This 67-nucleotide RNA sequence from Sphingomonadales bacterium EhC05 belongs to the Rfam family "int-alpA RNA". From the family's description: Acidobacteria (1 example), Planctomycetes (1 example), Proteobacteria. The source organism's lineage runs through Bacteria, Pseudomonadati, Pseudomonadota, Alphaproteobacteria and Sphingomonadales. The family's RNA type in Rfam is small RNA. The family has 167 seed sequences and 577 matches in Rfam 15.1.
RNA sequence: GGGGUGGCUAGGUUUAGCGACCGAACAGCCGUAACCGCACGGCCUGCCACCCUUUUACAAAUGCGGA
Numbered sequence: 001g002g003g004g005u006g007g008c009u010a011g012g013u014u015u016a017g018c019g020a021c022c023g024a025a026c027a028g029c030c031g032u033a034a035c036c037g038c039a040c041g042g043c044c045u046g047c048c049a050c051c052c053u054u055u056u057a058c059a060a061a062u063g064c065g066g067a
Stems, first nucleotide, its partner, number of pairs: 001053008011022004028043004035066005